Shown here is a 48-nucleotide RNA sequence from Pseudorhodobacter antarcticus, a member of the family "SAM/SAH riboswitch aptamer".
A search with the family's covariance model found it, with a score of 55 bits.
The literature on the family includes a 2019 paper in Nucleic Acids Res by Weickhmann et al., "The structure of the SAM/SAH-binding riboswitch".
Gene Ontology terms of the family: regulation of gene expression and S-adenosylmethionine metabolic process.
The base pairs follow the family's consensus structure, which is taken from published work.
NCBI's taxonomy places the organism under Bacteria, Pseudomonadota, Rhodobacterales, Paracoccaceae, Pseudorhodobacter.

RNA sequence: CUACCGUCACAACGGCUUCCUGACGUGACGCGUUUAACCAACGGAGCA
Numbered sequence: 001c002u003a004c005c006g007u008c009a010c011a012a013c014g015g016c017u018u019c020c021u022g023a024c025g026u027g028a029c030g031c032g033u034u035u036a037a038c039c040a041a042c043g044g045a046g047c048a
Stems, first nucleotide, its partner, number of pairs: 005030006013022002015047003019044002